[Rfam]
RNA sequence: AAUCGUGGUGAUGACUUCGUAAUAUUCAAGCUCAACAGACCGGAAUGCAGGAUUUUUCUUGUUUUCUCAUGGAAAGUUUUGCGUGUCGAUAAUCCCGCUGAACUGAGCGAUC
Numbered sequence: 001a002a003u004c005g006u007g008g009u010g011a012u013g014a015c016u017u018c019g020u021a022a023u024a025u026u027c028a029a030g031c032u033c034a035a036c037a038g039a040c041c042g043g044a045a046u047g048c049a050g051g052a053u054u055u056u057u058c059u060u061g062u063u064u065u066c067u068c069a070u071g072g073a074a075a076g077u078u079u080u081g082c083g084u085g086u087c088g089a090u091a092a093u094c095c096c097g098c099u100g101a102a103c104u105g106a107g108c109g110a111u112c
Stems, first nucleotide, its partner, number of pairs: 002111005
Rfam assigns this 112-nucleotide RNA sequence from Arabis alpina to the family "Small nucleolar RNA Z107/R87".
On this family, see Barneche et al., J Mol Biol 2001: "Identification of 66 box C/D snoRNAs in Arabidopsis thaliana: extensive gene duplications generated multiple isoforms predicting new ribosomal RNA 2'-O-methylation sites".
Pairs were carried over by alignment from the consensus structure, which was predicted with RNAfold.